The record is a 120-nucleotide RNA sequence, which matches "LOOT RNA" in Rfam. It is annotated as a small RNA.

RNA sequence: CGCCUAACCCAUCAAAUCUUGAUGGCACGGCGCAAUAAAACUAUCCCUAGUAGAGAGCUCGUCACCAGAGCAACUAGGGAUAGUCAUAUCUUGAAAGAGAUAUGGGUGCCGCAAGGCAUC
Numbered sequence: 001c002g003c004c005u006a007a008c009c010c011a012u013c014a015a016a017u018c019u020u021g022a023u024g025g026c027a028c029g030g031c032g033c034a035a036u037a038a039a040a041c042u043a044u045c046c047c048u049a050g051u052a053g054a055g056a057g058c059u060c061g062u063c064a065c066c067a068g069a070g071c072a073a074c075u076a077g078g079g080a081u082a083g084u085c086a087u088a089u090c091u092u093g094a095a096a097g098a099g100a101u102a103u104g105g106g107u108g109c110c111g112c113a114a115g116g117c118a119u120c
Stems, first nucleotide, its partner, number of pairs: 001032004009025007041083011057071004085104008105120006